[Rfam]
RNA: Nuclear RNase P
RNA sequence: AGUGAAGAAAGCUUAUUGGGGGGGGCUAUGUGCUGAGUGUCCUCAUGUCCCCUGGGAAGGUCUGAGACUAGGGCCAAGAGUGGCUCUAACAGGGCCCUCCCUGACCUGCGGGGAGGUGAGUUCCCAAAGACCAGUUUCCACGAGGACAGACUGGGCAGGAGAUGCCACGGAGCCCGCCCUCGGGAGGAGCCUGGCACAGACUCACGGCCGGCCAAGUGAGUUCAAUGCUGAGGUGAGGCACUCCACAAGGGGGCCUCAUAGCCCAAUUCAGACUACUCUUCCCCAAU
Numbered sequence: 001a002g003u004g005a006a007g008a009a010a011g012c013u014u015a016u017u018g019g020g021g022g023g024g025g026c027u028a029u030g031u032g033c034u035g036a037g038u039g040u041c042c043u044c045a046u047g048u049c050c051c052c053u054g055g056g057a058a059g060g061u062c063u064g065a066g067a068c069u070a071g072g073g074c075c076a077a078g079a080g081u082g083g084c085u086c087u088a089a090c091a092g093g094g095c096c097c098u099c100c101c102u103g104a105c106c107u108g109c110g111g112g113g114a115g116g117u118g119a120g121u122u123c124c125c126a127a128a129g130a131c132c133a134g135u136u137u138c139c140a141c142g143a144g145g146a147c148a149g150a151c152u153g154g155g156c157a158g159g160a161g162a163u164g165c166c167a168c169g170g171a172g173c174c175c176g177c178c179c180u181c182g183g184g185a186g187g188a189g190c191c192u193g194g195c196a197c198a199g200a201c202u203c204a205c206g207g208c209c210g211g212c213c214a215a216g217u218g219a220g221u222u223c224a225a226u227g228c229u230g231a232g233g234u235g236a237g238g239c240a241c242u243c244c245a246c247a248a249g250g251g252g253g254c255c256u257c258a259u260a261g262c263c264c265a266a267u268u269c270a271g272a273c274u275a276c277u278c279u280u281c282c283c284c285a286a287u
Stems, first nucleotide, its partner, number of pairs: 001287001003285002007281003012232004020053005035048001037046003062271005072209004082096005097115006116205007134190003233259007